[Rfam]
RNA sequence: GCUCCUACGGAACGUGAUGAUCCGGAUGGUCCGCCUCUCCCGCAGAGGCGAACUCGGCCGCCUAAUGGCCAUCCGGGGAGCGAGUGGCGAGACCGGUCCGUUCUGAC
Numbered sequence: 001g002c003u004c005c006u007a008c009g010g011a012a013c014g015u016g017a018u019g020a021u022c023c024g025g026a027u028g029g030u031c032c033g034c035c036u037c038u039c040c041c042g043c044a045g046a047g048g049c050g051a052a053c054u055c056g057g058c059c060g061c062c063u064a065a066u067g068g069c070c071a072u073c074c075g076g077g078g079a080g081c082g083a084g085u086g087g088c089g090a091g092a093c094c095g096g097u098c099c100g101u102u103c104u105g106a107c
Base pairs, nucleotide, nucleotide: 001107003105007101008100009099010098011097013082014081015080022076023075024074025073026072027071028070029069056094057093059089060088061087062086
Record summary: The record is a 107-nucleotide RNA sequence, which matches "c-di-GMP-II-GAG riboswitch aptamer" in Rfam. The family is grouped with related families in Rfam's "c-di-GMP_II riboswitch clan".